[Rfam]
Record summary
Rfam assigns this 49-nucleotide sequence from Gordonibacter pamelaeae to the family "DUF3800-XI RNA". About the family: Actinobacteria, Firmicutes, Proteobacteria, Spirochaetes (1 example). Taxonomically the source falls in Gordonibacter pamelaeae (Bacteria, Bacillati, Actinomycetota, Eggerthellaceae). Rfam classes the family as a small RNA.
RNA sequence: CGGGCUGGUCGAAAGAUCCGGGCCCGACAGGAAGGCGGAGGCUCUCUCC
Numbered sequence: 001c002g003g004g005c006u007g008g009u010c011g012a013a014a015g016a017u018c019c020g021g022g023c024c025c026g027a028c029a030g031g032a033a034g035g036c037g038g039a040g041g042c043u044c045u046c047u048c049c
Stems, first nucleotide, its partner, number of pairs: 001026006007018004